[Rfam]
RNA sequence: ACAUAGUUUAUACAUAUAUUAUACAGUCGAUGUGGCAGCAGAGGUAUACAAAGUAUGACUAAUGCAGUCUUUUAAAUCAUUUUUGCUUAAAAAAUGAAUAUUUUAAGGGAAAAAAAGGGAGGGGGUUUUAGCCGAUAGGCGAGACAUAUGCAGUAUCGCAAUGCAAAUGUCUCGAGUCCGGCACUCCCCUAGGGUACGGGCUCUAGGGGGUCUUUUGAAGAUUUCCCCCUACCCUCGUA
Numbered sequence: 001a002c003a004u005a006g007u008u009u010a011u012a013c014a015u016a017u018a019u020u021a022u023a024c025a026g027u028c029g030a031u032g033u034g035g036c037a038g039c040a041g042a043g044g045u046a047u048a049c050a051a052a053g054u055a056u057g058a059c060u061a062a063u064g065c066a067g068u069c070u071u072u073u074a075a076a077u078c079a080u081u082u083u084u085g086c087u088u089a090a091a092a093a094a095u096g097a098a099u100a101u102u103u104u105a106a107g108g109g110a111a112a113a114a115a116a117g118g119g120a121g122g123g124g125g126u127u128u129u130a131g132c133c134g135a136u137a138g139g140c141g142a143g144a145c146a147u148a149u150g151c152a153g154u155a156u157c158g159c160a161a162u163g164c165a166a167a168u169g170u171c172u173c174g175a176g177u178c179c180g181g182c183a184c185u186c187c188c189c190u191a192g193g194g195u196a197c198g199g200g201c202u203c204u205a206g207g208g209g210g211u212c213u214u215u216u217g218a219a220g221a222u223u224u225c226c227c228c229c230u231a232c233c234c235u236c237g238u239a
Base pairs, nucleotide, nucleotide: 037087038086039085040084041083042082043081044080045079095239096238116235117234118233119232121229122228123227131182132181133180134179140174141173142172143171144170145169146162147161149160150159151158184210185209186208187207188206
Record summary
The record is a 239-nucleotide sequence from Trachymyrmex septentrionalis, which matches "R2 RNA element" in Rfam. Rfam 15.1 lists 3,698 matches to the family in 74 species. Rfam's curators write: This family represents the 3' UTR region of the R2 retrotransposable element. A reference for the family is Ruschak et al. (2004), "Secondary structure models of the 3' untranslated regions of diverse R2 RNAs", RNA.